Overview:
mir-87 microRNA precursor family: a 66-nucleotide sequence from Caenorhabditis brenneri. The source organism's lineage runs through Eukaryota, Bilateria, Rhabditomorpha, Peloderinae and Caenorhabditis. On this family, see Ruby et al., Genome Res 2007: "Evolution, biogenesis, expression, and target predictions of a substantially expanded set of Drosophila microRNAs". The sequence is in the family's curated seed alignment.

[Rfam]
RNA sequence: CGCCUGAUACUUUCGUCUCAACCUCGCUUCUCUCAUUGUCGUAGGUGAGCAAAGUUUCAGGUGUGC
Numbered sequence: 001c002g003c004c005u006g007a008u009a010c011u012u013u014c015g016u017c018u019c020a021a022c023c024u025c026g027c028u029u030c031u032c033u034c035a036u037u038g039u040c041g042u043a044g045g046u047g048a049g050c051a052a053a054g055u056u057u058c059a060g061g062u063g064u065g066c
Stems, first nucleotide, its partner, number of pairs: 001063007009055005017049004022045003